[Rfam]
This 64-nucleotide sequence from Parasulfuritortus cantonensis belongs to the Rfam family "Betaproteobacteria toxic small RNA".
From the family's description: Overexpression in amino aid rich medium attenuates growth, suggesting role in repressing amino acid intake and metabolism.
NCBI's taxonomy places the organism under Bacteria, Pseudomonadati, Pseudomonadota, Betaproteobacteria, Parasulfuritortus.
RNA sequence: UGUCUCCUCCAUCCUCCUCCUUUGGUGGAUUUUCAAGCCCGGUAUCCCUACCGGGCUUUUUUUA
Numbered sequence: 001u002g003u004c005u006c007c008u009c010c011a012u013c014c015u016c017c018u019c020c021u022u023u024g025g026u027g028g029a030u031u032u033u034c035a036a037g038c039c040c041g042g043u044a045u046c047c048c049u050a051c052c053g054g055g056c057u058u059u060u061u062u063u064a
Stems, first nucleotide, its partner, number of pairs: 008029006036057008